[Rfam]
RNA sequence: GGUUUCCAUUGGUGCAAAUCCAAUCACCUAGAUGUGAAUGAAAAGCAAUUCCCAUUGGUAGCAAAUAGUUAUCCAUUAAGCGGAGGACAUAUAAU
Numbered sequence: 001g002g003u004u005u006c007c008a009u010u011g012g013u014g015c016a017a018a019u020c021c022a023a024u025c026a027c028c029u030a031g032a033u034g035u036g037a038a039u040g041a042a043a044a045g046c047a048a049u050u051c052c053c054a055u056u057g058g059u060a061g062c063a064a065a066u067a068g069u070u071a072u073c074c075a076u077u078a079a080g081c082g083g084a085g086g087a088c089a090u091a092u093a094a095u
Base pairs, nucleotide, nucleotide: 009023010022011021012020051085052083053082054076055075057073058072059071060070061069062068